[Rfam]
Rfam assigns this 97-nucleotide RNA sequence from Desulfoplanes formicivorans to the family "Glycine riboswitch aptamer". Rfam's curators write: This family represents the bacterial glycine riboswitch. Lineage of the source: Bacteria > Thermodesulfobacteriota > Desulfovibrionia > Desulfovibrionales > Desulfoplanes. A search with the family's covariance model found it, with a score of 65 bits.
RNA sequence: UGACGAGCCUCUGGAGAGACUCCCACAAGGGAGCACCGAAGGAGCAAGCCGAUGGAAAUCGGUGAAACUCUCAGGUAUCAAGGACAGAGUGUUGGUG
Dot-bracket structure: .....(..(((((......((((......)))).(((((..(((...((((........))))....))))).)))........)))))..).....